[Rfam]
RNA sequence: CGGGUAGUAUCCUAAUGCGAACUGCACCUGGUUAUGGUAGACAAGGCUAAAAAUAAGGUGUUUUCCGCUUGGAGCCAAUGGACCGAGACGGGGGG
Numbered sequence: 001c002g003g004g005u006a007g008u009a010u011c012c013u014a015a016u017g018c019g020a021a022c023u024g025c026a027c028c029u030g031g032u033u034a035u036g037g038u039a040g041a042c043a044a045g046g047c048u049a050a051a052a053a054u055a056a057g058g059u060g061u062u063u064u065c066c067g068c069u070u071g072g073a074g075c076c077a078a079u080g081g082a083c084c085g086a087g088a089c090g091g092g093g094g095g
Base pairs, nucleotide, nucleotide: 002028003027004025005024006023007022008021010020011019065091066090067089068087069086070085071084072083075081076080
The record is a 95-nucleotide RNA from Desulforamulus reducens, which matches "pan motif" in Rfam. The family's consensus secondary structure is taken from published work. The source organism's lineage runs through Bacteria, Bacillota, Clostridia, Peptococcaceae and Desulforamulus reducens.